[Rfam]
A member of the RNA family "FMN riboswitch aptamer (RFN element)" from Salinisphaera orenii, 147 nucleotides long. It scores 109 bits against the family's covariance model.

RNA sequence: GCUCGUCUUCAGGGCGGGGUGCGAUUCCCCACCGGCGGUAUGUCGUUGUUCGACGAGCCCGCGAGCGCUUCGAGGUUCCCUCGAGGGUCAGCAGAUCUGGUGCGAUGCCAGAGCCGACGGUCACAGUCCGGAUGAAAGAAGACCUGC
Numbered sequence: 001g002c003u004c005g006u007c008u009u010c011a012g013g014g015c016g017g018g019g020u021g022c023g024a025u026u027c028c029c030c031a032c033c034g035g036c037g038g039u040a041u042g043u044c045g046u047u048g049u050u051c052g053a054c055g056a057g058c059c060c061g062c063g064a065g066c067g068c069u070u071c072g073a074g075g076u077u078c079c080c081u082c083g084a085g086g087g088u089c090a091g092c093a094g095a096u097c098u099g100g101u102g103c104g105a106u107g108c109c110a111g112a113g114c115c116g117a118c119g120g121u122c123a124c125a126g127u128c129c130g131g132a133u134g135a136a137a138g139a140a141g142a143c144c145u146g147c
Stems, first nucleotide, its partner, number of pairs: 005143006017029003031127002033116002035062004057114002065092002096112005118130003
The family's consensus secondary structure is taken from published work.